[Rfam]
RNA: Alphaproteobacteria transfer-messenger RNA
Organism: Allosphingosinicella indica
RNA sequence: ACACUUCCUAUUCAGGAACGGCGACUUAUAUAGGUCGGUGCCGGGUUCGCCCGGCUAUGGCGAUAAACUGCGGCGUAUAAUAGGCGCAGCGGACCCGGGGGCAGUACCCGGCGGCUCCACCAACUGAGCCGAACGGCAGCACGCUUGGACCGCGUGCCGCCGAGCGGCUCAGCUAGAGGGGCCGAACCAGGAUCGACGUGUGUUGAAAAGCGCAGCUUUCGCCCGGAAUGGGACCACCGCAACGGCCCAUAACACAAGUGCCAACGAUAACGAGGCGCUCGCGAUUGCUGCGUAACGACGUCCUCACGGACUGACUUACAAAGACAAAAGCGCGGUUGGGCCGCACCGGGCAACAGAAGCGGAUACC
Numbered sequence: 001a002c003a004c005u006u007c008c009u010a011u012u013c014a015g016g017a018a019c020g021g022c023g024a025c026u027u028a029u030a031u032a033g034g035u036c037g038g039u040g041c042c043g044g045g046u047u048c049g050c051c052c053g054g055c056u057a058u059g060g061c062g063a064u065a066a067a068c069u070g071c072g073g074c075g076u077a078u079a080a081u082a083g084g085c086g087c088a089g090c091g092g093a094c095c096c097g098g099g100g101g102c103a104g105u106a107c108c109c110g111g112c113g114g115c116u117c118c119a120c121c122a123a124c125u126g127a128g129c130c131g132a133a134c135g136g137c138a139g140c141a142c143g144c145u146u147g148g149a150c151c152g153c154g155u156g157c158c159g160c161c162g163a164g165c166g167g168c169u170c171a172g173c174u175a176g177a178g179g180g181g182c183c184g185a186a187c188c189a190g191g192a193u194c195g196a197c198g199u200g201u202g203u204u205g206a207a208a209a210g211c212g213c214a215g216c217u218u219u220c221g222c223c224c225g226g227a228a229u230g231g232g233a234c235c236a237c238c239g240c241a242a243c244g245g246c247c248c249a250u251a252a253c254a255c256a257a258g259u260g261c262c263a264a265c266g267a268u269a270a271c272g273a274g275g276c277g278c279u280c281g282c283g284a285u286u287g288c289u290g291c292g293u294a295a296c297g298a299c300g301u302c303c304u305c306a307c308g309g310a311c312u313g314a315c316u317u318a319c320a321a322a323g324a325c326a327a328a329a330g331c332g333c334g335g336u337u338g339g340g341c342c343g344c345a346c347c348g349g350g351c352a353a354c355a356g357a358a359g360c361g362g363a364u365a366c367c
Stems, first nucleotide, its partner, number of pairs: 040055005059223005070216002073213004085202003089199003095111005112184007224239003229249003234245002333348004339364001341362004